[Rfam]
Nucleotides: 096
Base pairs, nucleotide, nucleotide: 001092002091003090004089005088006087007086008085010084011083016075017074018073019072020071021070033061034060035059037057038056
Number, partner (000 for none) and nucleotide at each position: 001092g002091g003090c004089u005088g006087g007086u008085c009000u010084g011083a012000u013000g014000g015000c016075a017074g018073u019072g020071g021070g022000u023000u024000a025000u026000c027000a028000g029000a030000a031000c032000u033061u034060g035059c036000u037057a038056a039000c040000a041000u042000u043000a044000g045000u046000g047000u048000c049000a050000c051000u052000g053000c054000a055000g056038u057037u058000g059035g060034u061033a062000u063000a064000c065000a066000a067000a068000c069000c070021c071020c072019c073018a074017c075016u076000g077000c078000u079000a080000a081000a082000u083011u084010u085008g086007a087006c088005u089004g090003g091002c092001u093000u094000u095000a096000a

The family of this 96-nucleotide RNA sequence from Saimiri boliviensis is "Y RNA". On this family, see Chen et al., Genes Dev 2000: "Ro ribonucleoproteins contribute to the resistance of Deinococcus radiodurans to ultraviolet irradiation". Lineage of the source: Eukaryota > Eutheria > Platyrrhini > Cebidae > Saimiri boliviensis. A search with the family's covariance model found it, with a score of 62 bits. Rfam describes the family as follows. Y RNAs are components of the Ro ribonucleoprotein particle (Ro RNP), in association with Ro60 and La proteins. The Y RNAs and Ro60 and La proteins are well conserved, but the function of the Ro RNP is not known. In humans the RNA component can be one of four small RNAs -- hY1, hY3, hY4 and hY5. These small RNAs are predicted to fold into a conserved secondary structure containing three stem structures.